Small nucleolar RNA SNORD113/SNORD114 family: a 75-nucleotide RNA from Phocoena sinus.
For this family Rfam cites "Identification of tandemly-repeated C/D snoRNA genes at the imprinted human 14q32 domain reminiscent of those at the Prader-Willi/Angelman syndrome region" (Cavaille et al., Hum Mol Genet, 2002).
Rfam's curators write: The imprinted human domain at 14q32 contains two clusters of tandemly repeated small nucleolar RNAs named 14q(I) and 14q(II) snoRNAs. These two clusters are named SNORD113 and SNORD114 respectively in the HGNC approved gene symbol nomenclature. The snoRNAs found in both clusters are clearly related and are represented here by a single family. These snoRNAs are intron encoded and are processed from the tissue-specific non-coding human MEG8 RNA, which lies downstream of the imprinted genes DLK1 and GTL2. snoRNAs 14q(I) and 14q(II) differ from previously identified C/D box snoRNAs in their expression profiles and lack of complementarity to rRNA and snRNA. Homologues of these snoRNAs are found in the imprinted non-coding mouse transcript Rian, and in the rat non-coding Bsr (brain-specific repetitive) RNA.
Lineage of the source: Eukaryota > Craniata > Teleostomi > Theria > Phocoena.
Clan: SNORD74 clan.

RNA sequence: UGAACCAAUGAAGACAACUGGUGGUGUAUGUGUUGUGGAUGAUGAAUAAUAUGUGUCUGGAACUUUGAGGUCCAA
Numbered sequence: 001u002g003a004a005c006c007a008a009u010g011a012a013g014a015c016a017a018c019u020g021g022u023g024g025u026g027u028a029u030g031u032g033u034u035g036u037g038g039a040u041g042a043u044g045a046a047u048a049a050u051a052u053g054u055g056u057c058u059g060g061a062a063c064u065u066u067g068a069g070g071u072c073c074a075a
Base pairs, nucleotide, nucleotide: 002073004071005070006069